Background
A member of the RNA family "Arthropod 7SK RNA" from Drosophila gunungcola, 448 nucleotides long. For this family Rfam cites "Arthropod 7SK RNA" (Gruber et al., Mol Biol Evol, 2008). By type it is a non-coding RNA gene.
RNA sequence: GGAAGUGUAUUCUGUGAUUGUUCUGUGCAUCGAUCGAUAUAUGGGUAAUAUCUGUAUAUCAGAUCUGCUCAGUGCCGACCCUCCGUCACACCUUUGUUUCCCAGUAAUUCUGCCUGGCAAUUGCUGUGGCUAUCUGGUUCGGAUUGGCUUUCCGUUGCCUUUCGCCGGACGACGACGGGUUGUCCGGCGAAUUGACGCACGGUUGUGCGCCAGUCAUCCGUCGCCCCCUCCGCCCCGGCGGAUUCCGGCCUCCACGGCUGGAACACGUAUUGGGCGGGGACGGGCGGCGGGGCCGGCGUUGAAGCCGACGACAGUUGCCCGAGUCAGCCACUUUCAAAAUUUCUUGGUUAAGUAACUUUGUAGCUUAGCUUCGGAUUUUCGUAAUAUGUUUGCUGUUCAGAACACUUCCAUGAACGAGGCAUUGCCGAGCAAUUUGCCCAUUCUUUUG
Numbered sequence: 001g002g003a004a005g006u007g008u009a010u011u012c013u014g015u016g017a018u019u020g021u022u023c024u025g026u027g028c029a030u031c032g033a034u035c036g037a038u039a040u041a042u043g044g045g046u047a048a049u050a051u052c053u054g055u056a057u058a059u060c061a062g063a064u065c066u067g068c069u070c071a072g073u074g075c076c077g078a079c080c081c082u083c084c085g086u087c088a089c090a091c092c093u094u095u096g097u098u099u100c101c102c103a104g105u106a107a108u109u110c111u112g113c114c115u116g117g118c119a120a121u122u123g124c125u126g127u128g129g130c131u132a133u134c135u136g137g138u139u140c141g142g143a144u145u146g147g148c149u150u151u152c153c154g155u156u157g158c159c160u161u162u163c164g165c166c167g168g169a170c171g172a173c174g175a176c177g178g179g180u181u182g183u184c185c186g187g188c189g190a191a192u193u194g195a196c197g198c199a200c201g202g203u204u205g206u207g208c209g210c211c212a213g214u215c216a217u218c219c220g221u222c223g224c225c226c227c228c229u230c231c232g233c234c235c236c237g238g239c240g241g242a243u244u245c246c247g248g249c250c251u252c253c254a255c256g257g258c259u260g261g262a263a264c265a266c267g268u269a270u271u272g273g274g275c276g277g278g279g280a281c282g283g284g285c286g287g288c289g290g291g292g293c294c295g296g297c298g299u300u301g302a303a304g305c306c307g308a309c310g311a312c313a314g315u316u317g318c319c320c321g322a323g324u325c326a327g328c329c330a331c332u333u334u335c336a337a338a339a340u341u342u343c344u345u346g347g348u349u350a351a352g353u354a355a356c357u358u359u360g361u362a363g364c365u366u367a368g369c370u371u372c373g374g375a376u377u378u379u380c381g382u383a384a385u386a387u388g389u390u391u392g393c394u395g396u397u398c399a400g401a402a403c404a405c406u407u408c409c410a411u412g413a414a415c416g417a418g419g420c421a422u423u424g425c426c427g428a429g430c431a432a433u434u435u436g437c438c439c440a441u442u443c444u445u446u447u448g
Stems, first nucleotide, its partner, number of pairs: 001409008014089005023072003027068003032065004036060004042054003418438003421433005